RNA: SAM-I/IV (S-adenosyl methionine) riboswitch aptamer
RNA sequence: GCCAAUUAUCAAGAAUCUCAAAAAGAGAUAGCAACCUGCAUAACGAGCAAGGUGCUAAAAAAGAUAAGCCAUUCUCUGGAAAAAACGUUACUCCU
Dot-bracket structure: .....(((((....(((((.....)))))(((..(((((.....[.)).))).)))......))))).(((.....)))........].......